About this RNA
Shown here is a 74-nucleotide RNA sequence from Pipistrellus kuhlii, a member of the family "mir-9193 microRNA precursor family". The base pairs follow the family's consensus structure, which was predicted with RNAalifold. Rfam links the family to the GO terms miRNA-mediated post-transcriptional gene silencing and RISC complex. A search with the family's covariance model found it, with a score of 72 bits.
RNA sequence: CAUUCAGGGAAGGGGUCUCCCAGCCUGGAUUGCAAGAGGGUGCAGGCCAGGCUGAGGGACCCCACCAGUGCACA
Numbered sequence: 001c002a003u004u005c006a007g008g009g010a011a012g013g014g015g016u017c018u019c020c021c022a023g024c025c026u027g028g029a030u031u032g033c034a035a036g037a038g039g040g041u042g043c044a045g046g047c048c049a050g051g052c053u054g055a056g057g058g059a060c061c062c063c064a065c066c067a068g069u070g071c072a073c074a
Stems, first nucleotide, its partner, number of pairs: 003072001006069001009066001012063008021054005027048002030045005